[Rfam]
RNA sequence: UCUGAAGAUAUAGGCCAUAGCAGAAGUGCUCAUGGCAUGGCCCUGUCAGUUUCCAACGAACCUGUGUUCUGCU
Numbered sequence: 001u002c003u004g005a006a007g008a009u010a011u012a013g014g015c016c017a018u019a020g021c022a023g024a025a026g027u028g029c030u031c032a033u034g035g036c037a038u039g040g041c042c043c044u045g046u047c048a049g050u051u052u053c054c055a056a057c058g059a060a061c062c063u064g065u066g067u068u069c070u071g072c073u
Base pairs, nucleotide, nucleotide: 013042014041015040016039019073020072021071022070023069024068025067026038027037028036047064048063049062051060052059053058

Annotation: The family of this 73-nucleotide RNA from Alligator sinensis is "Mammalian CPEB3 ribozyme". The family's consensus secondary structure is taken from published work. Taxonomically the source falls in Alligator (Eukaryota, Chordata, Craniata, Sarcopterygii).